RNA sequence: ACCACGUACUUACCUACUGUGUAGUAGUAGAGAUGCAUGUAUUUCAGCUACUAUAUAGUAGGUAAGUAUGCGGUUU
Dot-bracket structure: (((.(((((((((((.(((((((((((..((.(((....))).))..))))))))))).))))))))))).)))..
RNA: mir-7563 microRNA precursor family
Organism: Ameiurus melas